[Rfam]
RNA sequence: ACCGCUACAGACGGCGGCGGUUCCAAGCAGAAAUGAGUUUUGUCCGUACUAAAAAGUAAACGGAAAAAACUCAUUGUUCAGCAUUAUACAAGGAUAUACAAUGCUGAACAUGC
Numbered sequence: 001a002c003c004g005c006u007a008c009a010g011a012c013g014g015c016g017g018c019g020g021u022u023c024c025a026a027g028c029a030g031a032a033a034u035g036a037g038u039u040u041u042g043u044c045c046g047u048a049c050u051a052a053a054a055a056g057u058a059a060a061c062g063g064a065a066a067a068a069a070c071u072c073a074u075u076g077u078u079c080a081g082c083a084u085u086a087u088a089c090a091a092g093g094a095u096a097u098a099c100a101a102u103g104c105u106g107a108a109c110a111u112g113c
Stems, first nucleotide, its partner, number of pairs: 002017005034073008043064005076109010087098002